[Rfam]
RNA sequence: AGAAACGUUUUCUAGGGUUCCGUAACGAGGUAUGUUAGUCUGGUCCGAGAGAAAACUCACAGCUUGGCUGUGCCACGGAGGGACAAAAGCCUGGGAGAU
Numbered sequence: 001a002g003a004a005a006c007g008u009u010u011u012c013u014a015g016g017g018u019u020c021c022g023u024a025a026c027g028a029g030g031u032a033u034g035u036u037a038g039u040c041u042g043g044u045c046c047g048a049g050a051g052a053a054a055a056c057u058c059a060c061a062g063c064u065u066g067g068c069u070g071u072g073c074c075a076c077g078g079a080g081g082g083a084c085a086a087a088a089g090c091c092u093g094g095g096a097g098a099u
Stems, first nucleotide, its partner, number of pairs: 007056006015046002020043002022040001023037005058072006074094001076097001080092003
Rfam assigns this 99-nucleotide sequence from Virgibacillus sp. SK37 to the family "Guanidine-I riboswitch aptamer". About the family: This family represents a conserved RNA structure found upstream of the ykkC and yxkD genes in Bacillus subtilis and related genes in other bacteria. The base pairs follow the family's consensus structure.